Shown here is a 149-nucleotide RNA from Candidatus Fukatsuia symbiotica, a member of the family "sok antitoxin (CssrC)".
Also identified in Shigella as CssrC.
Rfam links the family to the GO term mRNA binding.
The source organism's lineage runs through Bacteria, Pseudomonadota, Gammaproteobacteria, Enterobacterales and Candidatus Fukatsuia.
RNA sequence: GGGUGCUUGAGGCUUUCUGUCUUGAGCAGUCGUGAUAGGCAGAAAGACGAAAGCCCGAGUUAUUUUUCAAUUAACCCGAGGCCAUCAAUAUGUCCAAUCAACGUAAGGAUAGCCUCUUAACUGCAGAAAUGCAAUCGGAGGUCAGAAUG
Numbered sequence: 001g002g003g004u005g006c007u008u009g010a011g012g013c014u015u016u017c018u019g020u021c022u023u024g025a026g027c028a029g030u031c032g033u034g035a036u037a038g039g040c041a042g043a044a045a046g047a048c049g050a051a052a053g054c055c056c057g058a059g060u061u062a063u064u065u066u067u068c069a070a071u072u073a074a075c076c077c078g079a080g081g082c083c084a085u086c087a088a089u090a091u092g093u094c095c096a097a098u099c100a101a102c103g104u105a106a107g108g109a110u111a112g113c114c115u116c117u118u119a120a121c122u123g124c125a126g127a128a129a130u131g132c133a134a135u136c137g138g139a140g141g142u143c144a145g146a147a148u149g
Stems, first nucleotide, its partner, number of pairs: 001056001003055001005054004011048001013046010026033002057077001059075002062071003078116005084110003089105004121140002124137001